[Rfam]
RNA sequence: CUCUUAUCAAGAGCGGUGGAGGGACUGGCCCUUGGAAACCGCGGCAACCAUCAGACGCAUUUUUAGUCUGGUAAAGGUGCUAACUCCAGCAAAGCAUAAGCUUUGAAAGAUAAGAG
Dot-bracket structure: ((((((((....(((((...(((.[[[[)))......)))))((((.(((((((((.........)))))))...))))))...(]]]]((((((....))))))..)))))))))

About this RNA: A member of the RNA family "SAM riboswitch aptamer (S box leader)" from Lentibacillus sp. JNUCC-1, 116 nucleotides long. NCBI's taxonomy places the organism under Bacteria, Bacillati, Bacillota, Bacillaceae, Lentibacillus. Its family is annotated with regulation of gene expression in the Gene Ontology.